A member of the RNA family "Fluoride riboswitch aptamer (crcB RNA motif)" from Chimaeribacter arupi, 60 nucleotides long. Its family is annotated with response to fluoride and positive regulation of gene expression in the Gene Ontology. The match comes from Rfam's covariance-model search (37 bits).

RNA sequence: CCGCGCUACGGGGAUGCUACUCCCCCUAAACGCCUCAGGGCUGAUGAUGCCUGCGUCGCC
Dot-bracket structure: .........((((..[.[[.[))))......(((....)))....].]].].........